This 140-nucleotide sequence from Micromonospora krabiensis belongs to the Rfam family "c-di-AMP riboswitch aptamer (ydaO/yuaA leader)". Rfam's curators write: This family represents a conserved RNA structure found upstream of the ydaO and yuaA genes in Bacillus subtilis and related genes in other bacteria. The ydaO/yuaA element is thought to act as a genetic 'off' switch for the ydaO and yuaA genes in its native state. It is believed that the element may be triggered during osmotic shock leading to activation of ydaO, a predicted amino acid transporter gene, and members of the yuaA-yubG operon which code for KtrA and KtrB K+ transporters.
[Rfam]
RNA sequence: GGUCCGACACCGCCGAGUCGCUCGCCGAGCGAGCCGGGGACCCAGGUUCGUCUGGGGUGAAUCCGCAGUCACUGCGGUAGGGCGCCUACCUUCCCGCCCGAACCCGUCAGCUAACCCGGUAGGCGGUCAGGGAAGAAGGA
Dot-bracket structure: ..........((((...(((((.....)))))((((((....((........))(((.....((((.......))))..((((............))))...))).........)))))).))))...............